[Rfam]
RNA sequence: AGAUGACUGAUUUCCUCUGGUGCUUAGAGCCGCCUGCAGCCUUCUAGCACCAUUUGAAAUCGGUUAUAA
Numbered sequence: 001a002g003a004u005g006a007c008u009g010a011u012u013u014c015c016u017c018u019g020g021u022g023c024u025u026a027g028a029g030c031c032g033c034c035u036g037c038a039g040c041c042u043u044c045u046a047g048c049a050c051c052a053u054u055u056g057a058a059a060u061c062g063g064u065u066a067u068a069a
Stems, first nucleotide, its partner, number of pairs: 003067002005064001007063008018052005025046004
RNA: mir-29 microRNA precursor family